[Rfam]
RNA sequence: UAAUUCGUUUUGGCCAGAUCCUCAUUUAGUUAUGGUCGAUUCACACAUAACUACUCAAAAUCACCCGUUAUCACAAGUCUGACUAUAUCAUUGACAUUGAAAAACAGAGAAAAACUAUUGUGUGAAUAUUGGUGAGCUGACUA
Numbered sequence: 001u002a003a004u005u006c007g008u009u010u011u012g013g014c015c016a017g018a019u020c021c022u023c024a025u026u027u028a029g030u031u032a033u034g035g036u037c038g039a040u041u042c043a044c045a046c047a048u049a050a051c052u053a054c055u056c057a058a059a060a061u062c063a064c065c066c067g068u069u070a071u072c073a074c075a076a077g078u079c080u081g082a083c084u085a086u087a088u089c090a091u092u093g094a095c096a097u098u099g100a101a102a103a104a105c106a107g108a109g110a111a112a113a114a115c116u117a118u119u120g121u122g123u124g125a126a127u128a129u130u131g132g133u134g135a136g137c138u139g140a141c142u143a
Base pairs, nucleotide, nucleotide: 005140006139007138008136009135012133014131018127019126023122024121025120027117028116029115030114031113
Dot-bracket structure: ....(((((..(.(...((...(((.(((((.................................................................................)))))..)))...))...).).)).)))...